[Rfam]
RNA sequence: AUUUAAGCCUUGUCUGAGCUUGAAAUAUAUUAUAUAAUAUAUAUGCAAAAAAAUUAAAUCACCUGGAUCCAGAAAUGGACCGGGAUGAUAGG
Numbered sequence: 001a002u003u004u005a006a007g008c009c010u011u012g013u014c015u016g017a018g019c020u021u022g023a024a025a026u027a028u029a030u031u032a033u034a035u036a037a038u039a040u041a042u043a044u045g046c047a048a049a050a051a052a053a054u055u056a057a058a059u060c061a062c063c064u065g066g067a068u069c070c071a072g073a074a075a076u077g078g079a080c081c082g083g084g085a086u087g088a089u090a091g092g
Base pairs, nucleotide, nucleotide: 001026002025003023004022005021006020007019009018010017059088060087061086062084063083064082065081066080068079069078070077